[Rfam]
RNA sequence: CUAGCACUUUCACAGGUUCCCCCCAGGCUGUGGGGCCAGGAUUUGGUAGCUGGUGCUGAGAGAAAGCCCUUGGUUGUAUCUUUGCCUUGGGACUAUGCCAGUGGCAGUUGUUAUUCAGUGGACAGAG
Numbered sequence: 001c002u003a004g005c006a007c008u009u010u011c012a013c014a015g016g017u018u019c020c021c022c023c024c025a026g027g028c029u030g031u032g033g034g035g036c037c038a039g040g041a042u043u044u045g046g047u048a049g050c051u052g053g054u055g056c057u058g059a060g061a062g063a064a065a066g067c068c069c070u071u072g073g074u075u076g077u078a079u080c081u082u083u084g085c086c087u088u089g090g091g092a093c094u095a096u097g098c099c100a101g102u103g104g105c106a107g108u109u110g111u112u113a114u115u116c117a118g119u120g121g122a123c124a125g126a127g
Base pairs, nucleotide, nucleotide: 003057004056005055006054007053008052013045014044015043017041018040019039021035022034023033024032068121069120070118071117072116073115075113076112078111079110082107083106084105085104086103087101088100089099090098
Rfam assigns this 127-nucleotide RNA sequence from Trichechus manatus to the family "Small nucleolar RNA SNORA30/SNORA37 family". The organism belongs to Trichechus manatus, within Eukaryota. The literature on the family includes a 2001 paper in EMBO J by Huttenhofer et al., "RNomics: an experimental approach that identifies 201 candidates for novel, small, non-messenger RNAs in mouse". From the family's description: The members of this family belong to the H/ACA class of snoRNAs that guide the sites of modification of uridines to pseudouridines. This family includes human ACA30 (SNORA30), ACA37 (SNORA37) and the mouse homolog MBI-26.